[Rfam]
RNA sequence: AUGAUCGUUACGGGGAGCUGGCGUAAAAAGCUGGCUGAGAGGAGAAUGCAUUUCUCGACCCAUAACCUGAUUUGGAUAAUGCCAACGUAGGGACAACAAAGUGAGUAAUC
Numbered sequence: 001a002u003g004a005u006c007g008u009u010a011c012g013g014g015g016a017g018c019u020g021g022c023g024u025a026a027a028a029a030g031c032u033g034g035c036u037g038a039g040a041g042g043a044g045a046a047u048g049c050a051u052u053u054c055u056c057g058a059c060c061c062a063u064a065a066c067c068u069g070a071u072u073u074g075g076a077u078a079a080u081g082c083c084a085a086c087g088u089a090g091g092g093a094c095a096a097c098a099a100a101g102u103g104a105g106u107a108a109u110c
Base pairs, nucleotide, nucleotide: 007097008096009095012061013060014059017035018034019033020032021031042056043055044054045053046052066091067090068089069088072085073084074083075082
TPP riboswitch aptamer (THI element): a 110-nucleotide RNA from Dorea sp. AF36-15AT. Taxonomically the source falls in Dorea (Bacteria, Bacillati, Bacillota, Lachnospiraceae). The match comes from Rfam's covariance-model search (60 bits). Vitamin B(1) in its active form thiamin pyrophosphate (TPP) is an essential coenzyme that is synthesised by coupling of pyrimidine and thiazole moieties in bacteria. Rfam links the family to the GO term thiamine pyrophosphate binding.